Overview: This 120-nucleotide RNA sequence from Medicago truncatula belongs to the Rfam family "MIR2599 microRNA precursor family". Gene Ontology terms of the family: miRNA-mediated post-transcriptional gene silencing and RISC complex. The organism belongs to Medicago, within Eukaryota. Pairs were carried over by alignment from the consensus structure, which was predicted with RNAalifold.
RNA sequence: GUGGGUACAAGGAAUCCACUUUAUUAAACACACUAACCAAAAAACUGUAAUUUCUAAGAUAUGUUUCAAAUUAAGGUGUUUUUGGUUAGUGUGCUGAAUAUAGUAGAUUCAUUGUACCCA
Numbered sequence: 001g002u003g004g005g006u007a008c009a010a011g012g013a014a015u016c017c018a019c020u021u022u023a024u025u026a027a028a029c030a031c032a033c034u035a036a037c038c039a040a041a042a043a044a045c046u047g048u049a050a051u052u053u054c055u056a057a058g059a060u061a062u063g064u065u066u067c068a069a070a071u072u073a074a075g076g077u078g079u080u081u082u083u084g085g086u087u088a089g090u091g092u093g094c095u096g097a098a099u100a101u102a103g104u105a106g107a108u109u110c111a112u113u114g115u116a117c118c119c120a
Stems, first nucleotide, its partner, number of pairs: 002120009012110005018104003022100004029093012048073004055068001057066003